Overview
Rfam assigns this 86-nucleotide RNA from Turnera subulata to the family "Small nucleolar RNA U54". The match comes from Rfam's covariance-model search (56 bits). By type it is a C/D-box small nucleolar RNA. The base pairs follow the family's consensus structure, which was predicted with PFOLD. The family is grouped with related families in Rfam's "U54 clan". About the family: U54 is a C/D box small nucleolar RNA, which acts as a methylation guide for 18S ribosomal RNA in plants. A reference for the family is Chen et al. (2003), "The high diversity of snoRNAs in plants: identification and comparative study of 120 snoRNA genes from Oryza sativa", Nucleic Acids Res.
RNA sequence: GGCUCUGUGAUUAUAUGCCCUGAUAUGGGCAGUAUACGCUAUUCCGAAGCUUUAGUAUGAGCAGAAAACUUGCAUUUAUGAGAGCU
Numbered sequence: 001g002g003c004u005c006u007g008u009g010a011u012u013a014u015a016u017g018c019c020c021u022g023a024u025a026u027g028g029g030c031a032g033u034a035u036a037c038g039c040u041a042u043u044c045c046g047a048a049g050c051u052u053u054a055g056u057a058u059g060a061g062c063a064g065a066a067a068a069c070u071u072g073c074a075u076u077u078a079u080g081a082g083a084g085c086u
Base pairs, nucleotide, nucleotide: 001086002085003084004083005082